[Rfam]
RNA sequence: ACACGAGGAAGGAGGUGGUCUGAAGUUGGUGAAUUUUAGGACGCGUGAGGUGGCUGCCAGCUAGCCGCUACCGCUGACGGAUUCAUUGACCGCGCGAGCGGCUGGCGAAUCCCAGGCAGCUACCCGACCCCCGAGCCCCCGGUCAGUCCAGACCGGGACCUGAAAGCAGGUAUGGCUCGGGGGUCGUUCCAU
Numbered sequence: 001a002c003a004c005g006a007g008g009a010a011g012g013a014g015g016u017g018g019u020c021u022g023a024a025g026u027u028g029g030u031g032a033a034u035u036u037u038a039g040g041a042c043g044c045g046u047g048a049g050g051u052g053g054c055u056g057c058c059a060g061c062u063a064g065c066c067g068c069u070a071c072c073g074c075u076g077a078c079g080g081a082u083u084c085a086u087u088g089a090c091c092g093c094g095c096g097a098g099c100g101g102c103u104g105g106c107g108a109a110u111c112c113c114a115g116g117c118a119g120c121u122a123c124c125c126g127a128c129c130c131c132c133g134a135g136c137c138c139c140c141g142g143u144c145a146g147u148c149c150a151g152a153c154c155g156g157g158a159c160c161u162g163a164a165a166g167c168a169g170g171u172a173u174g175g176c177u178c179g180g181g182g183g184u185c186g187u188u189c190c191a192u
Stems, first nucleotide, its partner, number of pairs: 014058006060106006067099003072094003125186013138157006
Rfam assigns this 192-nucleotide RNA sequence from Antrihabitans cavernicola to the family "Actinobacteria sRNA Ms_IGR-5". It scores 152 bits against the family's covariance model. Taxonomically the source falls in Antrihabitans (Bacteria, Actinomycetota, Actinomycetes, Nocardiaceae).